[Rfam]
Shown here is a 50-nucleotide sequence from Devosia aurantiaca, a member of the family "Guanidine-II riboswitch aptamer (mini-ykkC)". Taxonomically the source falls in Devosia (Bacteria, Pseudomonadati, Alphaproteobacteria, Hyphomicrobiales). The match comes from Rfam's covariance-model search (32 bits). From the family's description: Simpler in structure and has fewer highly conserved nucleotide positions than the ykkC-yxkD leader. Despite this each of its two stem-loop structures directly bind free guanidine. Therefore, mini-ykkC RNA motif represents a distinct class of guanidine-sensing RNAs. Its crystal structure was also determined. Pairs were carried over by alignment from the consensus structure, which is taken from published work.
RNA sequence: UUGCGAGGACGACCUCCCCGGUUCGGGAUCUUUUGCGCGGGACGGCCCGG
Numbered sequence: 001u002u003g004c005g006a007g008g009a010c011g012a013c014c015u016c017c018c019c020g021g022u023u024c025g026g027g028a029u030c031u032u033u034u035g036c037g038c039g040g041g042a043c044g045g046c047c048c049g050g
Stems, first nucleotide, its partner, number of pairs: 001020001003018001005016004038049004